[Rfam]
RNA sequence: AGCAAAAUGAGGAAGUUAUGCCACCUGAAACUGUACUGUUGAUAAUUCUUGGAUAGCCUUCAAAGUUCUCUUGUUACU
Numbered sequence: 001a002g003c004a005a006a007a008u009g010a011g012g013a014a015g016u017u018a019u020g021c022c023a024c025c026u027g028a029a030a031c032u033g034u035a036c037u038g039u040u041g042a043u044a045a046u047u048c049u050u051g052g053a054u055a056g057c058c059u060u061c062a063a064a065g066u067u068c069u070c071u072u073g074u075u076a077c078u
Base pairs, nucleotide, nucleotide: 001078002077004075005074
The record is a 78-nucleotide RNA sequence from Dichanthelium oligosanthes, which matches "Small nucleolar RNA R160" in Rfam.
For this family Rfam cites "The high diversity of snoRNAs in plants: identification and comparative study of 120 snoRNA genes from Oryza sativa" (Chen et al., Nucleic Acids Res, 2003).
snoR160 is a C/D box small nucleolar RNA, which acts as a methylation guide for 25S ribosomal RNA in plants. snoR160 has been alternatively named snoZ270 in rice.
Rfam 15.1 lists 799 matches to the family in 221 species.
Rfam links the family to the GO terms nucleolus and RNA processing.